[Rfam]
RNA sequence: CGCUCAGUCAUUGGGGAGUAGCCUUUCCCGGCCAGCCCGGGAAGUCCACGUCAACAAACUUGAGGCCUCACGCCUCAUGGCGUGGUCAGCUUGUAUUGCGCUUAACCGCAAGGCAAGUCAGGCAAGACCUUUGGCCGCGAUGCGUUUGCCAGCCGGGCAAGCC
Numbered sequence: 001c002g003c004u005c006a007g008u009c010a011u012u013g014g015g016g017a018g019u020a021g022c023c024u025u026u027c028c029c030g031g032c033c034a035g036c037c038c039g040g041g042a043a044g045u046c047c048a049c050g051u052c053a054a055c056a057a058a059c060u061u062g063a064g065g066c067c068u069c070a071c072g073c074c075u076c077a078u079g080g081c082g083u084g085g086u087c088a089g090c091u092u093g094u095a096u097u098g099c100g101c102u103u104a105a106c107c108g109c110a111a112g113g114c115a116a117g118u119c120a121g122g123c124a125a126g127a128c129c130u131u132u133g134g135c136c137g138c139g140a141u142g143c144g145u146u147u148g149c150c151a152g153c154c155g156g157g158c159a160a161g162c163c
Base pairs, nucleotide, nucleotide: 026042027041028040029039030038031037044087046085047084048083049082050081051080052079053078061077062076063075064074065073089162090161091160092159093158094157

Source information: This 163-nucleotide RNA sequence from Chromobacterium violaceum belongs to the Rfam family "Manganese Mn2+ riboswitch aptamer (yybP-ykoY)". Rfam describes the family as follows. This RNA was originally discovered in E. coli during a large scale screen and was named SraF. The family was later found to exist upstream of related families of protein genes in many bacteria, including the the yybP and ykoK genes in B. subtilis. For this family Rfam cites "Mn(2+)-sensing mechanisms of yybP-ykoY orphan riboswitches" (Price et al., Mol Cell, 2015). The match comes from Rfam's covariance-model search (60 bits). Taxonomically the source falls in Chromobacterium violaceum (Bacteria, Pseudomonadati, Betaproteobacteria, Chromobacterium). Gene Ontology term of the family: manganese ion binding.